[Rfam]
RNA sequence: GAGGGCAGGCCCCUCGAAGUCGCCAUGCAGGUGGAGGCUUCAAACCACCGUAAGCUGCUGUGGACAAAAGCCAUGGUAGUGAGCGUUACGGAAAAGGCGAGGGCCAGACCUCGUCAGGU
Numbered sequence: 001g002a003g004g005g006c007a008g009g010c011c012c013c014u015c016g017a018a019g020u021c022g023c024c025a026u027g028c029a030g031g032u033g034g035a036g037g038c039u040u041c042a043a044a045c046c047a048c049c050g051u052a053a054g055c056u057g058c059u060g061u062g063g064a065c066a067a068a069a070g071c072c073a074u075g076g077u078a079g080u081g082a083g084c085g086u087u088a089c090g091g092a093a094a095a096g097g098c099g100a101g102g103g104c105c106a107g108a109c110c111u112c113g114u115c116a117g118g119u
Stems, first nucleotide, its partner, number of pairs: 001015005016041006023034004046118001048091006054080002057077003061073003096115006

About this RNA
A member of the RNA family "Group II catalytic intron D1-D4-2" from Kyrpidia spormannii, 119 nucleotides long. Taxonomically the source falls in Kyrpidia (Bacteria, Bacilli, Caryophanales, Alicyclobacillaceae). Rfam describes the family as follows. Group II introns are found in rRNA, tRNA and mRNA of organelles in fungi, plants and protists, and also in mRNA in bacteria.